Pseudomonas sRNA CrcZ: a 397-nucleotide RNA from Pseudomonas saudiphocaensis. A search with the family's covariance model found it, with a score of 308 bits. The family's RNA type in Rfam is small RNA. The family's consensus secondary structure was predicted with WAR.
RNA sequence: ACAACAACAAUAACAAGCAGACCCACAAUAAGAACAAAACGUACCGACUCCAGCAAAAUAACGACAAGAAGGCGGAGGCGUAGCUAACUGAUUCUUUUGGAGAGGACUUGCCAAAUGGGGUUCAGCCCCACGACCAGGCCGAGAACAACAAGAACUGCUCUAAGCAGUACCUGCACUGGUUGGAUCACAGGAUCAAUGGCAGCUCAGCGACCAAAGCAAUCCGUUUGCUCUUGGCUCCCAAUGUAGGAGCGAUUCCCUAAAAGCGAUGGCCAAAGGGAACGGGCGAACCAACAAAAACAACACGCCCGAAUAUUAAUAACAACAAAGCACGCAACAUCUUUAAAAGGGAGCUUCGGCUCCCUUUGUGCUUUGCGAUCCCUACCGAGUUUUGACACCC
Numbered sequence: 001a002c003a004a005c006a007a008c009a010a011u012a013a014c015a016a017g018c019a020g021a022c023c024c025a026c027a028a029u030a031a032g033a034a035c036a037a038a039a040c041g042u043a044c045c046g047a048c049u050c051c052a053g054c055a056a057a058a059u060a061a062c063g064a065c066a067a068g069a070a071g072g073c074g075g076a077g078g079c080g081u082a083g084c085u086a087a088c089u090g091a092u093u094c095u096u097u098u099g100g101a102g103a104g105g106a107c108u109u110g111c112c113a114a115a116u117g118g119g120g121u122u123c124a125g126c127c128c129c130a131c132g133a134c135c136a137g138g139c140c141g142a143g144a145a146c147a148a149c150a151a152g153a154a155c156u157g158c159u160c161u162a163a164g165c166a167g168u169a170c171c172u173g174c175a176c177u178g179g180u181u182g183g184a185u186c187a188c189a190g191g192a193u194c195a196a197u198g199g200c201a202g203c204u205c206a207g208c209g210a211c212c213a214a215a216g217c218a219a220u221c222c223g224u225u226u227g228c229u230c231u232u233g234g235c236u237c238c239c240a241a242u243g244u245a246g247g248a249g250c251g252a253u254u255c256c257c258u259a260a261a262a263g264c265g266a267u268g269g270c271c272a273a274a275g276g277g278a279a280c281g282g283g284c285g286a287a288c289c290a291a292c293a294a295a296a297a298c299a300a301c302a303c304g305c306c307c308g309a310a311u312a313u314u315a316a317u318a319a320c321a322a323c324a325a326a327g328c329a330c331g332c333a334a335c336a337u338c339u340u341u342a343a344a345a346g347g348g349a350g351c352u353u354c355g356g357c358u359c360c361c362u363u364u365g366u367g368c369u370u371u372g373c374g375a376u377c378c379c380u381a382c383c384g385a386g387u388u389u390u391g392a393c394a395c396c397c
Stems, first nucleotide, its partner, number of pairs: 045080002048077004095216005109209003131182007155167005234250005275379004280374001281307004325370004344363008